[Rfam]
RNA sequence: AAAGCUCAAAACAACGGAAGCCCUACCUCUCUUCCAUCCUUACGGCUCCGAUGACCGUGCCAGUGUGAAUUGUGUUGCCAAAAAUAAA
Number, nucleotide and partner (000 for none) at each position: 001a000002a000003a000004g000005c000006u000007c000008a000009a000010a000011a000012c000013a000014a000015c000016g000017g000018a000019a000020g000021c000022c000023c000024u000025a000026c000027c000028u000029c000030u000031c000032u000033u000034c000035c067036a066037u000038c000039c063040u062041u059042a058043c057044g056045g055046c000047u053048c000049c000050g000051a000052u000053g047054a000055c045056c044057g043058u042059g041060c000061c000062a040063g039064u000065g000066u036067g035068a000069a000070u000071u000072g000073u000074g000075u000076u000077g000078c000079c000080a000081a000082a000083a000084a000085u000086a000087a000088a000
Rfam assigns this 88-nucleotide RNA sequence from Aneurinibacillus danicus to the family "BsrC". NCBI's taxonomy places the organism under Bacteria, Bacillota, Caryophanales, Paenibacillaceae, Aneurinibacillus. The 301 nucleotide sequence from Kouji Nakamura has been trimmed to a highly conserved ~85 nucleotide long core to form this family. A reference for the family is Saito et al. (2008), "Novel small RNA-encoding genes in the intergenic regions of Bacillus subtilis", Gene.